[Rfam]
RNA sequence: GACAGGCCGUACGGUCCGGCCCCGACCCGAGGGGUGAGCACCCUGACACAACUUCCCCUGUGUCAGGUAGCACUUCCCGCACUCCUCGGGGCGGAACCAGGUCGUACGGCCCUCCGCGU
Numbered sequence: 001g002a003c004a005g006g007c008c009g010u011a012c013g014g015u016c017c018g019g020c021c022c023c024g025a026c027c028c029g030a031g032g033g034g035u036g037a038g039c040a041c042c043c044u045g046a047c048a049c050a051a052c053u054u055c056c057c058c059u060g061u062g063u064c065a066g067g068u069a070g071c072a073c074u075u076c077c078c079g080c081a082c083u084c085c086u087c088g089g090g091g092c093g094g095a096a097c098c099a100g101g102u103c104g105u106a107c108g109g110c111c112c113u114c115c116g117c118g119u
Base pairs, nucleotide, nucleotide: 010106011105012104013103014102015101016100018098019097022094023093024092026090027089028088029087030086031085032084033083034082038071039070042067043066044065045064046063047062048061049060
This 119-nucleotide RNA from Raineyella fluvialis belongs to the Rfam family "mraW RNA". It scores 55 bits against the family's covariance model. NCBI's taxonomy places the organism under Bacteria, Bacillati, Actinomycetes, Propionibacteriaceae, Raineyella. The base pairs follow the family's consensus structure, which is taken from published work.